[Rfam]
RNA sequence: AGCUGCGUGGUGAGCACAAAGCGAACUAUUCUUUCGCCUUUUACUAAAGAAUACCGUGUGCACGCCACAAUAAGCAGCAUACCUUAAUUUUUGAAGGGUCCUUCCUCUCUUGAGUAGGGU
Number, nucleotide and partner (000 for none) at each position: 001a000002g000003c077004u076005g075006c074007g000008u067009g066010g065011u064012g063013a000014g061015c060016a059017c058018a057019a000020a000021g000022c000023g000024a000025a000026c000027u053028a052029u051030u050031c049032u048033u047034u046035c000036g000037c000038c000039u000040u000041u000042u000043a000044c000045u000046a034047a033048a032049g031050a030051a029052u028053a027054c000055c000056g000057u018058g017059u016060g015061c014062a000063c012064g011065c010066c009067a008068c000069a000070a000071u000072a000073a000074g006075c005076a004077g003078c000079a000080u000081a000082c000083c000084u000085u000086a000087a000088u000089u000090u000091u000092u000093g000094a000095a120096g000097g000098g000099u000100c119101c118102u117103u116104c000105c114106u000107c000108u000109c000110u000111u000112g000113a000114g105115u000116a103117g102118g101119g100120u095
Notes:
Rfam assigns this 120-nucleotide RNA sequence from Triticum aestivum to the family "U5 spliceosomal RNA". From the family's description: U5 RNA is a component of both types of known spliceosome. It scores 92 bits against the family's covariance model. NCBI's taxonomy places the organism under Eukaryota, commelinids, Poales, Triticeae, Triticum.